Shown here is a 54-nucleotide sequence from Coregonus sp. 'balchen', a member of the family "UnaL2 LINE 3' element". The eel long interspersed element (LINE) UnaL2 and its partner short interspersed element (SINE) share a conserved 3' tail containing a stem-loop that is critical for their retrotransposition. Presumably, the first step of retrotransposition is the recognition of their 3' tails by UnaL2-encoded reverse transcriptase. The solution structure of a 17-nucleotide RNA derived from the 3' tail of UnaL2 was determined by NMR. The family's RNA type in Rfam is cis-regulatory element. The match comes from Rfam's covariance-model search (56 bits).

[Rfam]
RNA sequence: AAUGCACCAAUUUGCAUGUCGCUCUGGAUAAGAACGUCUGCUAAAUGACGUAAA
Numbered sequence: 001a002a003u004g005c006a007c008c009a010a011u012u013u014g015c016a017u018g019u020c021g022c023u024c025u026g027g028a029u030a031a032g033a034a035c036g037u038c039u040g041c042u043a044a045a046u047g048a049c050g051u052a053a054a
Base pairs, nucleotide, nucleotide: 013043014041015040016039020036021035023033024032025031
Dot-bracket structure: ............((((...((.(((.....))).))..))).)...........
Gene Ontology term of the family: transposition, RNA-mediated.